[Rfam]
RNA: Guanidine-I riboswitch aptamer
RNA sequence: GUUUUUGUUUACUAGGGUUCCGUCGGAAGGUUCCGGGCUGGUCCGAGAGUAAACCGCUUGUUGUGACGAGCGACACGGAAGGAUAAAAACCUGGGAGAU
Numbered sequence: 001g002u003u004u005u006u007g008u009u010u011a012c013u014a015g016g017g018u019u020c021c022g023u024c025g026g027a028a029g030g031u032u033c034c035g036g037g038c039u040g041g042u043c044c045g046a047g048a049g050u051a052a053a054c055c056g057c058u059u060g061u062u063g064u065g066a067c068g069a070g071c072g073a074c075a076c077g078g079a080a081g082g083a084u085a086a087a088a089a090c091c092u093g094g095g096a097g098a099u
Stems, first nucleotide, its partner, number of pairs: 007054006015044002020041002022038001023036005055072007074094001076097001080092003